[Rfam]
The family of this 61-nucleotide RNA from Cupriavidus basilensis is "Betaproteobacteria toxic small RNA". A search with the family's covariance model found it, with a score of 52 bits. The base pairs follow the family's consensus structure, which was predicted with WAR.
RNA sequence: UGUCUCCUCCACCACCUCGGUGGAUUCCAGCCCGCGCACGAAACUGCGCGGGUUUUUUUUG
Number, nucleotide and partner (000 for none) at each position: 001u000002g000003u000004c000005u000006c000007c000008u024009c023010c022011a021012c020013c019014a000015c000016c000017u000018c000019g013020g012021u011022g010023g009024a008025u000026u000027c000028c000029a054030g053031c052032c051033c050034g049035c048036g047037c000038a000039c000040g000041a000042a000043a000044c000045u000046g000047c036048g035049c034050g033051g032052g031053u030054u029055u000056u000057u000058u000059u000060u000061g000

Lineage of the source: Bacteria > Pseudomonadota > Betaproteobacteria > Burkholderiaceae > Cupriavidus. On this family, see Sass et al., Sci Rep 2017: "Identification of small RNAs abundant in Burkholderia cenocepacia biofilms reveal putative regulators with a potential role in carbon and iron metabolism". Rfam describes the family as follows. Overexpression in amino aid rich medium attenuates growth, suggesting role in repressing amino acid intake and metabolism.